[Rfam]
Source information: Shown here is a 172-nucleotide sequence from Nocardia farcinica, a member of the family "c-di-AMP riboswitch aptamer (ydaO/yuaA leader)". A search with the family's covariance model found it, with a score of 47 bits. About the family: This family represents a conserved RNA structure found upstream of the ydaO and yuaA genes in Bacillus subtilis and related genes in other bacteria. The organism belongs to Nocardia farcinica, within Bacteria.

RNA sequence: ACUGAGUCACCGCCUUAACGGCUGUCGGGGCCAGUGUGAUCUCGGCUGCCGUGCCGGGGAUACCCACAGCGCACUGGGGUGAAUCCGCGCCAGGUCGACAGCCUGCGCGGUAGGGCCGAUCUUCCCGGCCCGAACCCGUCGGGUGAACCGGUCGGCGGGAGAGCAAGGAAGA
Numbered sequence: 001a002c003u004g005a006g007u008c009a010c011c012g013c014c015u016u017a018a019c020g021g022c023u024g025u026c027g028g029g030g031c032c033a034g035u036g037u038g039a040u041c042u043c044g045g046c047u048g049c050c051g052u053g054c055c056g057g058g059g060a061u062a063c064c065c066a067c068a069g070c071g072c073a074c075u076g077g078g079g080u081g082a083a084u085c086c087g088c089g090c091c092a093g094g095u096c097g098a099c100a101g102c103c104u105g106c107g108c109g110g111u112a113g114g115g116c117c118g119a120u121c122u123u124c125c126c127g128g129c130c131c132g133a134a135c136c137c138g139u140c141g142g143g144u145g146a147a148c149c150g151g152u153c154g155g156c157g158g159g160a161g162a163g164c165a166a167g168g169a170a171g172a
Stems, first nucleotide, its partner, number of pairs: 011157004018052005053152005065076002077137003085110006113131004